Rfam assigns this 107-nucleotide sequence from Leersia perrieri to the family "Small nucleolar RNA R44/J54/Z268 family". Pairs were carried over by alignment from the consensus structure, which was predicted with PFOLD. Rfam 15.1 lists 1,168 matches to the family in 228 species. The match comes from Rfam's covariance-model search (52 bits). Clan: SNORD74 clan.
Nucleotides: 107
Stems, first nucleotide, its partner, number of pairs: 002106001004104003
Number, partner (000 for none) and nucleotide at each position: 001000u002106u003000a004104g005103c006102a007000g008000a009000u010000g011000a012000u013000g014000a015000g016000a017000a018000u019000c020000a021000a022000g023000a024000c025000a026000a027000u028000a029000u030000a031000u032000c033000u034000g035000c036000a037000g038000c039000g040000c041000g042000c043000c044000c045000g046000a047000u048000a049000c050000g051000a052000u053000u054000a055000a056000c057000u058000c059000g060000g061000g062000a063000g064000c065000g066000c067000a068000a069000u070000a071000g072000c073000a074000u075000g076000a077000u078000g079000a080000c081000u082000c083000c084000g085000u086000c087000u088000a089000g090000g091000g092000g093000a094000a095000u096000c097000u098000c099000u100000g101000a102006u103005g104004c105000a106002a107000a